[Rfam]
RNA sequence: GAGGCGGCAUCCAUCCGGAGCGGCACUCUACCUGUAUGACAUGUGGGAUGAUAUUGGAAUAAUAACAUGAAACAAGAUGUUGGAUUCUGCUCUGAGCCUUGCGGACCGAGACAGAAGG
Numbered sequence: 001g002a003g004g005c006g007g008c009a010u011c012c013a014u015c016c017g018g019a020g021c022g023g024c025a026c027u028c029u030a031c032c033u034g035u036a037u038g039a040c041a042u043g044u045g046g047g048a049u050g051a052u053a054u055u056g057g058a059a060u061a062a063u064a065a066c067a068u069g070a071a072a073c074a075a076g077a078u079g080u081u082g083g084a085u086u087c088u089g090c091u092c093u094g095a096g097c098c099u100u101g102c103g104g105a106c107c108g109a110g111a112c113a114g115a116a117g118g
Stems, first nucleotide, its partner, number of pairs: 001028003004024002007021002010019002087114003090110003094106001097104002
This 118-nucleotide sequence from Paenibacillus sp. N3.4 belongs to the Rfam family "pan motif". Pairs were carried over by alignment from the consensus structure, which is taken from published work. The source organism's lineage runs through Bacteria, Bacillati, Bacillota, Bacilli and Paenibacillus. The match comes from Rfam's covariance-model search (38 bits). By type it is a cis-regulatory element.